[Rfam]
RNA sequence: UCUUAGGGGUGCUAGGGUUCCGGUUCGCGAGAACGUCUGGUCCGAGAGCAGCCCGGUGCGCCGUGGCGAUUGGCUUAAAGCUGAUCUGGCGGCUCAUUACACGGCGGGACAAAAGCCCGGGAGAU
Numbered sequence: 001u002c003u004u005a006g007g008g009g010u011g012c013u014a015g016g017g018u019u020c021c022g023g024u025u026c027g028c029g030a031g032a033a034c035g036u037c038u039g040g041u042c043c044g045a046g047a048g049c050a051g052c053c054c055g056g057u058g059c060g061c062c063g064u065g066g067c068g069a070u071u072g073g074c075u076u077a078a079a080g081c082u083g084a085u086c087u088g089g090c091g092g093c094u095c096a097u098u099a100c101a102c103g104g105c106g107g108g109a110c111a112a113a114a115g116c117c118c119g120g121g122a123g124a125u
Base pairs, nucleotide, nucleotide: 007054008053009052010050011049012048015043016042020040021039022037023034024033025032026031055098056097057096058095060093061092062091063090064089100120102123106118107117108116